A member of the RNA family "Metazoan signal recognition particle RNA" from Pitta sordida, 298 nucleotides long. On this family, see Wild et al., Curr Opin Struct Biol 2002: "Towards the structure of the mammalian signal recognition particle".
RNA sequence: GCCGGGUGCAGUGGCGCACACCUGUAGUCUCAGCUGCCGGGGAGACUGAGCUCGGUGGAUCGCUUAAGCCCAGGAGUUCUGGGCUGCAGGGUGCUGUGCCGAGCAGGCAUCCAAGCUAAGGCUGCCAAUAAUACGGUGACCCGCGGGAAGCCGCGGGAUACCAGAUUGACUAAGGAGGGGUGAACAGGCCCAGGUCAGAGAUGGAGCAGGUCAAAGCUCCUGUGGCCAUCACUACUGGGAUCGCACCUGUGAACAGACCCUGCAGCAUAGCCUGGGCAACACAGACAUGCGGGCUCCA
Number, nucleotide and partner (000 for none) at each position: 001g046002c000003c044004g023005g022006g021007u020008g019009c000010a000011g000012u000013g000014g000015c000016g000017c000018a000019c008020a007021c006022c005023u004024g000025u000026a000027g000028u043029c042030u041031c000032a000033g000034c000035u000036g000037c000038c000039g000040g000041g030042g029043a028044g003045a000046c001047u000048g296049a295050g294051c293052u292053c291054g290055g000056u000057g000058g000059a000060u000061c000062g000063c284064u283065u000066a000067a000068g277069c276070c275071c274072a273073g272074g271075a000076g000077u000078u000079c270080u269081g268082g000083g266084c265085u264086g263087c262088a261089g260090g259091g258092u000093g000094c256095u255096g254097u253098g000099c251100c000101g000102a000103g250104c249105a248106g247107g246108c000109a000110u243111c239112c238113a000114a000115g236116c000117u234118a233119a000120g230121g229122c000123u000124g226125c225126c224127a223128a000129u168130a167131a166132u165133a000134c000135g162136g161137u160138g159139a000140c157141c156142c155143g154144c153145g152146g151147g000148a000149a000150g000151c146152c145153g144154c143155g142156g141157g140158a000159u138160a137161c136162c135163a000164g000165a132166u131167u130168g129169a000170c174171u000172a000173a000174g170175g000176a221177g220178g219179g218180g217181u216182g000183a000184a000185c000186a000187g212188g211189c210190c209191c000192a000193g000194g000195u204196c203197a202198g000199a000200g000201a000202u197203g196204g195205a000206g000207c000208a000209g190210g189211u188212c187213a000214a000215a000216g181217c180218u179219c178220c177221u176222g000223u127224g126225g125226c124227c000228a000229u121230c120231a000232c000233u118234a117235c000236u115237g000238g112239g111240a000241u000242c000243g110244c000245a000246c107247c106248u105249g104250u103251g099252a000253a097254c096255a095256g094257a000258c091259c090260c089261u088262g087263c086264a085265g084266c083267a000268u081269a080270g079271c074272c073273u072274g071275g070276g069277c068278a000279a000280c000281a000282c000283a064284g063285a000286c000287a000288u000289g000290c054291g053292g052293g051294c050295u049296c048297c000298a000